[Rfam]
RNA sequence: UUGAAGCUCCAUCUAUAAAUGGAUAAGACCUGGCCUUAGUGUAUACGAGUAUUUGAAAGAAAUAAAAAAGGAGCAAUAAUCCCCUUGUUGUUCUAUCAAGAGGGAGCUAUUGCUCCUUUUU
Number, nucleotide and partner (000 for none) at each position: 001u000002u000003g000004a000005a000006g000007c000008u023009c022010c021011a020012u019013c000014u000015a000016u000017a000018a000019a012020u011021g010022g009023a008024u000025a000026a000027g000028a000029c000030c000031u000032g000033g000034c000035c000036u000037u000038a000039g000040u000041g000042u000043a000044u000045a000046c000047g000048a000049g000050u000051a000052u000053u000054u000055g000056a000057a000058a000059g000060a000061a000062a000063u000064a000065a000066a000067a119068a118069a117070g116071g115072a114073g113074c112075a111076a110077u109078a108079a000080u000081c000082c104083c103084c000085u102086u101087g000088u099089u098090g000091u000092u000093c000094u000095a000096u000097c000098a089099a088100g000101a086102g085103g083104g082105a000106g000107c000108u078109a077110u076111u075112g074113c073114u072115c071116c070117u069118u068119u067120u000121u000

This 121-nucleotide RNA from Linnaea borealis belongs to the Rfam family "Plastid-psbA-1 3UTR RNA".
The family is grouped with related families in Rfam's "Plastid-psbA 3UTR RNA clan".
Rfam's curators put it in the seed alignment.
Rfam's curators write: Plastid psbA-1 is a non-coding RNA (ncRNA) present in plastids. It was identified in inverted repeat sequences in the 3 prime untranslate region (3UTR) of photosystem II quinone-binding protein (psbA).
A reference for the family is Richter et al. (2023), "Retrograde signaling in plants: A critical review focusing on the GUN pathway and beyond", Plant Commun.
Taxonomically the source falls in Linnaea (Eukaryota, Viridiplantae, Euphyllophyta, Dipsacales).